[Rfam]
Nucleotides: 105
Base pairs, nucleotide, nucleotide: 005035006034007033008032009031013030014029015028016027017026018025038069039068040067041066042065044063045062047060048059070099071098072097073096074095075094076093077092078091079090080089082087
Number, partner (000 for none) and nucleotide at each position: 001000u002000g003000u004000a005035c006034c007033u008032u009031u010000a011000a012000a013030u014029u015028a016027a017026c018025c019000c020000c021000g022000u023000g024000a025018g026017g027016u028015u029014a030013a031009a032008a033007a034006g035005g036000c037000u038069a039068a040067a041066a042065a043000c044063a045062c046000u047060u048059a049000u050000g051000u052000a053000u054000c055000a056000u057000a058000u059048u060047a061000u062045g063044u064000a065042u066041u067040u068039u069038u070099a071098u072097g073096c074095c075094u076093u077092u078091u079090u080089g081000c082087c083000u084000c085000u086000g087082g088000a089080c090079a091078a092077a093076a094075a095074g096073g097072c098071a099070u100000u101000u102000u103000u104000a105000u

The family of this 105-nucleotide sequence from Crassaminicella thermophila is "PyrR binding site". A search with the family's covariance model found it, with a score of 61 bits.